[Rfam]
RNA sequence: GAGUGAGGACGACCUCCCCCAUCCGGGACCUGUUCGGGACGACCCGG
Numbered sequence: 001g002a003g004u005g006a007g008g009a010c011g012a013c014c015u016c017c018c019c020c021a022u023c024c025g026g027g028a029c030c031u032g033u034u035c036g037g038g039a040c041g042a043c044c045c046g047g
Base pairs, nucleotide, nucleotide: 001020003018005016006015007014008013034047035046036045037044038043
Dot-bracket structure: (.(.((((....)))).).).............(((((....)))))
The record is a 47-nucleotide RNA sequence from Hoeflea marina, which matches "Guanidine-II riboswitch aptamer (mini-ykkC)" in Rfam.
Its family is annotated with regulation of gene expression in the Gene Ontology.
NCBI's taxonomy places the organism under Bacteria, Alphaproteobacteria, Hyphomicrobiales, Rhizobiaceae, Hoeflea.
The match comes from Rfam's covariance-model search (37 bits).